[Rfam]
RNA: Small nucleolar RNA F1/F2/snoR5a
Organism: Chenopodium quinoa
RNA sequence: GGAUGCCCGAUGGUAUCUAAUGUCCAGACUUGUAUAUAGUGGCUGGACAUCUCGUUUUACGGGCACAUACUAAUCCUCCUUAGAACAGAUCUUGCGACACAGUUUGCUCUUCUUUUAUGAGCUUUCUGUUACUUUAAAGCUGUUCACAUUU
Numbered sequence: 001g002g003a004u005g006c007c008c009g010a011u012g013g014u015a016u017c018u019a020a021u022g023u024c025c026a027g028a029c030u031u032g033u034a035u036a037u038a039g040u041g042g043c044u045g046g047a048c049a050u051c052u053c054g055u056u057u058u059a060c061g062g063g064c065a066c067a068u069a070c071u072a073a074u075c076c077u078c079c080u081u082a083g084a085a086c087a088g089a090u091c092u093u094g095c096g097a098c099a100c101a102g103u104u105u106g107c108u109c110u111u112c113u114u115u116u117a118u119g120a121g122c123u124u125u126c127u128g129u130u131a132c133u134u135u136a137a138a139g140c141u142g143u144u145c146a147c148a149u150u151u
Base pairs, nucleotide, nucleotide: 004065005064006063007062008061009060020050021049022048023047024046025045026044027043029041031038084144085143086142087141088140099129100128101127102126106122107121108120